Rfam assigns this 99-nucleotide RNA sequence from Theobroma umbraticum to the family "MIR397 microRNA precursor family".
The base pairs follow the family's consensus structure, which was predicted with WAR.
NCBI's taxonomy places the organism under Eukaryota, Viridiplantae, Mesangiospermae, eudicotyledons, Theobroma.
RNA sequence: GCAAAACACAUGAUUGAGUGCAGCGCUGGCGAAUUCAUCUGAGAUAGAGUUGGCAAAAAAUCAAAGAAUUCAUCAACGCUGCACUCAAUGAUGUGUCUU
Dot-bracket structure: .....((((((.(((((((((((((.((..((.....................................))..)).))))))))))))).))))))...